[Rfam]
RNA sequence: GCUUUUCUGUGAUGAGGCCCUGGAGUGUGCUAGGUAGGUCCAGCACCCGACUAAGACUGCGGAAGCAUUCCUGUUGCCUUCCUUCUGAGAAAAGC
Numbered sequence: 001g002c003u004u005u006u007c008u009g010u011g012a013u014g015a016g017g018c019c020c021u022g023g024a025g026u027g028u029g030c031u032a033g034g035u036a037g038g039u040c041c042a043g044c045a046c047c048c049g050a051c052u053a054a055g056a057c058u059g060c061g062g063a064a065g066c067a068u069u070c071c072u073g074u075u076g077c078c079u080u081c082c083u084u085c086u087g088a089g090a091a092a093a094g095c
Stems, first nucleotide, its partner, number of pairs: 001095005
A member of the RNA family "Small nucleolar RNA U83B" from Nannospalax galili, 95 nucleotides long. U83B belongs to the C/D family of snoRNAs. U83B like U83A has no documented RNA target and they share the same host gene with the C/D box snoRNA U43 (RPL3). N.B. U83A/B/C have no sequence similarity with the U83 snoRNA that was cloned by Jady and Kiss (2000). A search with the family's covariance model found it, with a score of 81 bits. For this family Rfam cites "Characterisation of the U83 and U84 small nucleolar RNAs: two novel 2'-O-ribose methylation guide RNAs that lack complementarities to ribosomal RNAs" (Jady and Kiss, Nucleic Acids Res, 2000). The organism belongs to Nannospalax, within Eukaryota.